[Rfam]
RNA sequence: CAGGGAGUGGCGGUAAAACCGUUACCAUUACUGAGUUUUUAGUAAUGGUAAGGGUUAAACUGCCCCUUCUCCU
Numbered sequence: 001c002a003g004g005g006a007g008u009g010g011c012g013g014u015a016a017a018a019c020c021g022u023u024a025c026c027a028u029u030a031c032u033g034a035g036u037u038u039u040u041a042g043u044a045a046u047g048g049u050a051a052g053g054g055u056u057a058a059a060c061u062g063c064c065c066c067u068u069c070u071c072c073u
Stems, first nucleotide, its partner, number of pairs: 007066001009064001011062003017056004022051012
mir-451 microRNA precursor family: a 73-nucleotide RNA from Anguilla anguilla. The base pairs follow the family's consensus structure, which was predicted with RNAalifold. The source organism's lineage runs through Eukaryota, Craniata, Actinopterygii, Elopocephala and Anguilla.